[Rfam]
RNA sequence: GGAGUGCAAAAUCCUGCAUCAGCCUCCUCGUGGCGCAUUCUGGGGUUGUUGAAUUUUAAAUAUUCAACUAGCUAAUGGUGUAGG
Dot-bracket structure: ............((((((((((((.......)))...........(.(((((((.......))))))).).....)))))))))
Numbered sequence: 001g002g003a004g005u006g007c008a009a010a011a012u013c014c015u016g017c018a019u020c021a022g023c024c025u026c027c028u029c030g031u032g033g034c035g036c037a038u039u040c041u042g043g044g045g046u047u048g049u050u051g052a053a054u055u056u057u058a059a060a061u062a063u064u065c066a067a068c069u070a071g072c073u074a075a076u077g078g079u080g081u082a083g084g
Stems, first nucleotide, its partner, number of pairs: 013084009022034003046070001048068007